[Rfam]
Source information: The record is a 75-nucleotide RNA sequence from Alligator mississippiensis, which matches "Mammalian CPEB3 ribozyme" in Rfam.
RNA sequence: UAACAAUGUCAAGGCCACAGCAGAAGUGCUUAUAGUGUGGCCUGUCAGAUUCCAAUGAAAUCUGUGAAUUCUGCU
Dot-bracket structure: ............[[[[..((((((((((.......)))]]]]...((((((.......))))))....)))))))
The mammalian CPEB3 ribozyme is a self cleaving RNA located in the second intron of the CPEB3 gene which belongs to a family of genes regulating messenger RNA polyadenylation. This ribozyme is highly conserved and found only in mammals. The CPEB3 ribozyme is structurally and biochemically related to the human hepatitis delta virus (HDV) ribozyme and the HDV ribozyme is proposed to have arisen from the human transcriptome. There is currently only one other known self cleaving ribozyme in mammals, the CoTC motif. The base pairs follow the family's consensus structure, which is taken from published work.